[Rfam]
RNA sequence: GAUUCGGGAGCCGCGCGGUGGGACGGGCGGCAGGUAUUGAAUCGGAAACCCUGACAUUCGCAGGCCGCGCGUUCCGGGCCCCGACGGUGCGCGCG
Numbered sequence: 001g002a003u004u005c006g007g008g009a010g011c012c013g014c015g016c017g018g019u020g021g022g023a024c025g026g027g028c029g030g031c032a033g034g035u036a037u038u039g040a041a042u043c044g045g046a047a048a049c050c051c052u053g054a055c056a057u058u059c060g061c062a063g064g065c066c067g068c069g070c071g072u073u074c075c076g077g078g079c080c081c082c083g084a085c086g087g088u089g090c091g092c093g094c095g
Stems, first nucleotide, its partner, number of pairs: 001043005010031005016025002066095005072089001074087003
RNA: Rhodo-rpoB RNA